RNA sequence: AAACCAUGGUGUGGACACUUACGGAGCAACUCUUUGAAACGGUCCCAUGCCUCCCUGAAUGGUUCAUCAAAUCUCUGAGUGAACCUCAUAAUCUCAUUUUUGAGACU
Numbered sequence: 001a002a003a004c005c006a007u008g009g010u011g012u013g014g015a016c017a018c019u020u021a022c023g024g025a026g027c028a029a030c031u032c033u034u035u036g037a038a039a040c041g042g043u044c045c046c047a048u049g050c051c052u053c054c055c056u057g058a059a060u061g062g063u064u065c066a067u068c069a070a071a072u073c074u075c076u077g078a079g080u081g082a083a084c085c086u087c088a089u090a091a092u093c094u095c096a097u098u099u100u101u102g103a104g105a106c107u
Base pairs, nucleotide, nucleotide: 001107004104005102006101057074060071
RNA: Plant small nucleolar RNA R71
Organism: Artemisia annua